Shown here is an 88-nucleotide RNA sequence from Oceanisphaera avium, a member of the family "t44 RNA". Pairs were carried over by alignment from the consensus structure, which was predicted with LocARNA. The source organism's lineage runs through Bacteria, Pseudomonadota, Gammaproteobacteria, Aeromonadaceae and Oceanisphaera. It scores 77 bits against the family's covariance model. On this family, see Tjaden et al., Nucleic Acids Res 2002: "Transcriptome analysis of Escherichia coli using high-density oligonucleotide probe arrays".
[Rfam]
RNA sequence: CAUUCACCUUUUUUAACACACACACACAUCGGCACAUGCUCUAGGGUGCUCUUUUGAGUUGGAGACAUGGGAUGUGUGGAGGCCUAAC
Numbered sequence: 001c002a003u004u005c006a007c008c009u010u011u012u013u014u015a016a017c018a019c020a021c022a023c024a025c026a027c028a029u030c031g032g033c034a035c036a037u038g039c040u041c042u043a044g045g046g047u048g049c050u051c052u053u054u055u056g057a058g059u060u061g062g063a064g065a066c067a068u069g070g071g072a073u074g075u076g077u078g079g080a081g082g083c084c085u086a087a088c
Stems, first nucleotide, its partner, number of pairs: 023078008035069004040063004048059004